[Rfam]
A member of the RNA family "Small nucleolar RNA SNORD73" from Oreochromis aureus, 71 nucleotides long. Rfam 15.1 lists 769 matches to the family in 586 species.

RNA sequence: AACACAUGAUGACAAACAGUUUCGGUCCCGUAUGACCACCUGAUUACCAUCUAUUGAGAUCACCUGAUGUU
Dot-bracket structure: ((((...............................................................))))